[Rfam]
RNA: M-box riboswitch aptamer (ykoK leader)
RNA sequence: UUAAUACUUUGUUAGGUGAGGCUCCUAUACAGAAAUAGGCUACUGCCCAGAAACGUCGAAAGACGCCAAUGUGGGUCAACAGACACUACCGGAUUAAGGUUUUGUUUAAUGUAGCUGGUUGUUAAACCUAAGCUGUAUAGUGCUAAAACUCAACGAGGGAAGAAUAUA
Numbered sequence: 001u002u003a004a005u006a007c008u009u010u011g012u013u014a015g016g017u018g019a020g021g022c023u024c025c026u027a028u029a030c031a032g033a034a035a036u037a038g039g040c041u042a043c044u045g046c047c048c049a050g051a052a053a054c055g056u057c058g059a060a061a062g063a064c065g066c067c068a069a070u071g072u073g074g075g076u077c078a079a080c081a082g083a084c085a086c087u088a089c090c091g092g093a094u095u096a097a098g099g100u101u102u103u104g105u106u107u108a109a110u111g112u113a114g115c116u117g118g119u120u121g122u123u124a125a126a127c128c129u130a131a132g133c134u135g136u137a138u139a140g141u142g143c144u145a146a147a148a149c150u151c152a153a154c155g156a157g158g159g160a161a162g163a164a165u166a167u168a
Stems, first nucleotide, its partner, number of pairs: 005164001007162004011154002013097001015150003020144003025140008039115005045076005054065004082106004088100003117128003